The family of this 54-nucleotide sequence is "chrB-b RNA". It is annotated as a cis-regulatory element.
[Rfam]
RNA sequence: CCGGGUCAAUUGCAGACACCCGGUCCUAAAGGACGAUUCCGUCUCAAGCGCUGC
Numbered sequence: 001c002c003g004g005g006u007c008a009a010u011u012g013c014a015g016a017c018a019c020c021c022g023g024u025c026c027u028a029a030a031g032g033a034c035g036a037u038u039c040c041g042u043c044u045c046a047a048g049c050g051c052u053g054c
Stems, first nucleotide, its partner, number of pairs: 001023006012054004031044005
Dot-bracket structure: ((((((.....[[[[..)))))).......(((((....)))))......]]]]